[Rfam]
RNA sequence: AAAGGCGUGCGUGACUGGCGAAUGAAGUGGGGAACCACGGGGGAGCGUACGAACAUAUAGUGCCGUUCGCCUGGGCAAAGUAU
Numbered sequence: 001a002a003a004g005g006c007g008u009g010c011g012u013g014a015c016u017g018g019c020g021a022a023u024g025a026a027g028u029g030g031g032g033a034a035c036c037a038c039g040g041g042g043g044a045g046c047g048u049a050c051g052a053a054c055a056u057a058u059a060g061u062g063c064c065g066u067u068c069g070c071c072u073g074g075g076c077a078a079a080g081u082a083u
Stems, first nucleotide, its partner, number of pairs: 006051007015042002017071005027038004061077004

Rfam assigns this 83-nucleotide RNA from Paenibacillus sp. J2TS4 to the family "ZMP/ZTP riboswitch aptamer (pfl RNA motif)". The organism belongs to Paenibacillus, within Bacteria. It scores 63 bits against the family's covariance model.